[Rfam]
RNA sequence: CUGGAAUGAUGCAUCUUAGCCAAAGCAAACAAUGAUGUGCUCCUUGAGGUAUCUUCUUUUAAGCUUGUAAAAAUUGCUACUGUGGAGGCACUUGGUGAUCUUCCUAUGCAGUUGAUCAAGCCUUAAGCUGGGUACCUUUUGUAGAAGCGCAUCUCUCUGGUGAUAACACAGAGAUUGGUUUCUUGUCUGACCAGA
Numbered sequence: 001c002u003g004g005a006a007u008g009a010u011g012c013a014u015c016u017u018a019g020c021c022a023a024a025g026c027a028a029a030c031a032a033u034g035a036u037g038u039g040c041u042c043c044u045u046g047a048g049g050u051a052u053c054u055u056c057u058u059u060u061a062a063g064c065u066u067g068u069a070a071a072a073a074u075u076g077c078u079a080c081u082g083u084g085g086a087g088g089c090a091c092u093u094g095g096u097g098a099u100c101u102u103c104c105u106a107u108g109c110a111g112u113u114g115a116u117c118a119a120g121c122c123u124u125a126a127g128c129u130g131g132g133u134a135c136c137u138u139u140u141g142u143a144g145a146a147g148c149g150c151a152u153c154u155c156u157c158u159g160g161u162g163a164u165a166a167c168a169c170a171g172a173g174a175u176u177g178g179u180u181u182c183u184u185g186u187c188u189g190a191c192c193a194g195a
Base pairs, nucleotide, nucleotide: 001194002193003192004191
Dot-bracket structure: ((((..........................................................................................................................................................................................)))).
A member of the RNA family "small nucleolar RNA snoR127" from Camellia sinensis, 195 nucleotides long. The source organism's lineage runs through Eukaryota, Streptophyta, Tracheophyta, asterids and Camellia sinensis. Gene Ontology terms of the family: RNA processing and nucleolus.